The record is a 76-nucleotide RNA sequence from Felis catus, which matches "Small nucleolar RNA SNORD26" in Rfam. It is annotated as a C/D-box small nucleolar RNA. Its Rfam clan is "SNORD26 clan". Its family is annotated with nucleolus and RNA processing in the Gene Ontology.
RNA sequence: CUACGGGGAUGAUACUAAGGAUUGAACUCUCUCUUUCUGAUGGAGUAGUGGAGAAAGCCUAAGAGUUCUGAGUAGC
Number, nucleotide and partner (000 for none) at each position: 001c075002u074003a073004c072005g000006g000007g000008g000009a000010u000011g000012a000013u000014a000015c000016u000017a000018a000019g000020g000021a000022u000023u000024g000025a000026a000027c000028u000029c000030u000031c000032u000033c000034u000035u000036u000037c000038u000039g000040a000041u000042g000043g000044a000045g000046u000047a000048g000049u000050g000051g000052a000053g000054a000055a000056a000057g000058c000059c000060u000061a000062a000063g000064a000065g000066u000067u000068c000069u000070g000071a000072g004073u003074a002075g001076c000